mir-31 microRNA precursor family: an 81-nucleotide sequence from Cephus cinctus. The family's consensus secondary structure was predicted with RNAalifold. A reference for the family is Aravin et al. (2003), "The small RNA profile during Drosophila melanogaster development", Dev Cell. A search with the family's covariance model found it, with a score of 66 bits. The family is grouped with related families in Rfam's "mir-31 microRNA precursor family".
[Rfam]
RNA sequence: GUACGUCUAGAAGGCAAGAUGUCGGCAUAGCUGAUGUUUCGUAAAAUUCGGCUGUGUCACAUCCAGCCAGCUAAACGUUCA
Numbered sequence: 001g002u003a004c005g006u007c008u009a010g011a012a013g014g015c016a017a018g019a020u021g022u023c024g025g026c027a028u029a030g031c032u033g034a035u036g037u038u039u040c041g042u043a044a045a046a047u048u049c050g051g052c053u054g055u056g057u058c059a060c061a062u063c064c065a066g067c068c069a070g071c072u073a074a075a076c077g078u079u080c081a
Base pairs, nucleotide, nucleotide: 005076006075008073009072010071013068014067015066018063019062020061021060024058025057026056027055028054029053030052031051